[Rfam]
RNA sequence: CUGGGAGGAAGCUCUCCGUAGAGGCCACGUGCUGGGUGUCCAUCACCCCAAGUCCCGCCUCUGGGAAGGUCUGAGAGAAGGGCCAAGAUUGCCACCCUAGCAGGGUGCCACCUUCUGAAGGUGGGUGAGUUCCCAGCAAUGCGGGUCUCCGAUCCGGUCCUAGAAUCCGAGGCAGGAGAAGCGGCGGGCGGCCCGCGGGCUGCUUCCCGCUGAUGCUUCCGUGGCUUGUCGGAGAUUUGGGAAUGACUCACGGCCGGCAGCUUUGAGUACAAUGGGAAGAGGUGGAGCAACGCCAGCUUCAUAACCCAAUUCAGACUAGUCUCCCCCCAG
Numbered sequence: 001c002u003g004g005g006a007g008g009a010a011g012c013u014c015u016c017c018g019u020a021g022a023g024g025c026c027a028c029g030u031g032c033u034g035g036g037u038g039u040c041c042a043u044c045a046c047c048c049c050a051a052g053u054c055c056c057g058c059c060u061c062u063g064g065g066a067a068g069g070u071c072u073g074a075g076a077g078a079a080g081g082g083c084c085a086a087g088a089u090u091g092c093c094a095c096c097c098u099a100g101c102a103g104g105g106u107g108c109c110a111c112c113u114u115c116u117g118a119a120g121g122u123g124g125g126u127g128a129g130u131u132c133c134c135a136g137c138a139a140u141g142c143g144g145g146u147c148u149c150c151g152a153u154c155c156g157g158u159c160c161u162a163g164a165a166u167c168c169g170a171g172g173c174a175g176g177a178g179a180a181g182c183g184g185c186g187g188g189c190g191g192c193c194c195g196c197g198g199g200c201u202g203c204u205u206c207c208c209g210c211u212g213a214u215g216c217u218u219c220c221g222u223g224g225c226u227u228g229u230c231g232g233a234g235a236u237u238u239g240g241g242a243a244u245g246a247c248u249c250a251c252g253g254c255c256g257g258c259a260g261c262u263u264u265g266a267g268u269a270c271a272a273u274g275g276g277a278a279g280a281g282g283u284g285g286a287g288c289a290a291c292g293c294c295a296g297c298u299u300c301a302u303a304a305c306c307c308a309a310u311u312c313a314g315a316c317u318a319g320u321c322u323c324c325c326c327c328c329a330g
Stems, first nucleotide, its partner, number of pairs: 001330004007324003012281004016276002020062005034048005071314005081255004093107005108124006125251007145236009282302007
A member of the RNA family "Nuclear RNase P" from Laticauda laticaudata, 330 nucleotides long. It scores 196 bits against the family's covariance model.